Annotation: The record is a 78-nucleotide RNA sequence from Desulfoluna spongiiphila, which matches "c-di-GMP-I riboswitch aptamer" in Rfam. Taxonomically the source falls in Desulfoluna (Bacteria, Desulfobacteria, Desulfobacterales, Desulfolunaceae). The match comes from Rfam's covariance-model search (54 bits).

RNA sequence: ACAAGAAAAAGCCAAACCCGAUGUGAGUCGGGGACGGAAAGCCCACGGGUCUCAUGGGGAGAUGGCCGGGUUGCUCUU
Numbered sequence: 001a002c003a004a005g006a007a008a009a010a011g012c013c014a015a016a017c018c019c020g021a022u023g024u025g026a027g028u029c030g031g032g033g034a035c036g037g038a039a040a041g042c043c044c045a046c047g048g049g050u051c052u053c054a055u056g057g058g059g060a061g062a063u064g065g066c067c068g069g070g071u072u073g074c075u076c077u078u
Base pairs, nucleotide, nucleotide: 012037013036017032018031019030020029021028022027040072041071042070043069046068047067048066049063050062051061052060053059